[Rfam]
RNA sequence: AAAUCAUUGCGGGGGGACUUUUAUAGUUGAGAAGGUUAAAACCUGACCCUUAGAACCUGACAGUUAACACUGACGUAGGGAGCAGAAGUUUGAAUCAC
Numbered sequence: 001a002a003a004u005c006a007u008u009g010c011g012g013g014g015g016g017a018c019u020u021u022u023a024u025a026g027u028u029g030a031g032a033a034g035g036u037u038a039a040a041a042c043c044u045g046a047c048c049c050u051u052a053g054a055a056c057c058u059g060a061c062a063g064u065u066a067a068c069a070c071u072g073a074c075g076u077a078g079g080g081a082g083c084a085g086a087a088g089u090u091u092g093a094a095u096c097a098c
Base pairs, nucleotide, nucleotide: 007085008084009083010082011050012049013048014047016044017027018026019025034043035042036041056079057078058077059076061072062071063070
RNA: TPP riboswitch aptamer (THI element)